Shown here is a 52-nucleotide sequence from Pan troglodytes, a member of the family "mir-1302 microRNA precursor family". It scores 62 bits against the family's covariance model. The source organism's lineage runs through Eukaryota, Metazoa, Teleostomi, Simiiformes and Pan.
RNA sequence: UUCUUAGUAUAAAUAUGUGCCAUGCAAUAUUUGGGACAUAGUUAUUCUAAAG
Numbered sequence: 001u002u003c004u005u006a007g008u009a010u011a012a013a014u015a016u017g018u019g020c021c022a023u024g025c026a027a028u029a030u031u032u033g034g035g036a037c038a039u040a041g042u043u044a045u046u047c048u049a050a051a052g
Stems, first nucleotide, its partner, number of pairs: 006048002009045004014040003018036001020034002022031001